The record is a 76-nucleotide RNA from Alligator mississippiensis, which matches "Mammalian CPEB3 ribozyme" in Rfam. The family's consensus secondary structure is taken from published work.
[Rfam]
RNA sequence: GCAGGCUUCUGUAGGCUGCAGCAGAAGCGCUCAUGGCACAGCCCUGUCAGCUUCCAAUGAAUCUGUGAAUUCUGCU
Numbered sequence: 001g002c003a004g005g006c007u008u009c010u011g012u013a014g015g016c017u018g019c020a021g022c023a024g025a026a027g028c029g030c031u032c033a034u035g036g037c038a039c040a041g042c043c044c045u046g047u048c049a050g051c052u053u054c055c056a057a058u059g060a061a062u063c064u065g066u067g068a069a070u071u072c073u074g075c076u
Stems, first nucleotide, its partner, number of pairs: 014043004020076007027039001029037001048065003052061003